The record is a 112-nucleotide sequence from Afifella marina, which matches "TPP riboswitch aptamer (THI element)" in Rfam. Gene Ontology term of the family: thiamine pyrophosphate binding. The match comes from Rfam's covariance-model search (77 bits).

RNA sequence: GGCCUUUCCGAGGGGUGUGCGGACAAACCGCGCUGAGAUGGCCGUGAUGGCGGCCGAACCCUUUGAACCUGAUCCGGAUCAUGCCGGCGAAGGGACGGGCCUCAGUCUCUCC
Numbered sequence: 001g002g003c004c005u006u007u008c009c010g011a012g013g014g015g016u017g018u019g020c021g022g023a024c025a026a027a028c029c030g031c032g033c034u035g036a037g038a039u040g041g042c043c044g045u046g047a048u049g050g051c052g053g054c055c056g057a058a059c060c061c062u063u064u065g066a067a068c069c070u071g072a073u074c075c076g077g078a079u080c081a082u083g084c085c086g087g088c089g090a091a092g093g094g095a096c097g098g099g100c101c102u103c104a105g106u107c108u109c110u111c112c
Base pairs, nucleotide, nucleotide: 007099008098009097010096011062012061013060014059016056017033018032019031020030021029040055041054042053043052044051068093069092070091074087075086076085077084
The base pairs follow the family's consensus structure, which is taken from published work. NCBI's taxonomy places the organism under Bacteria, Pseudomonadati, Pseudomonadota, Hyphomicrobiales, Afifella marina.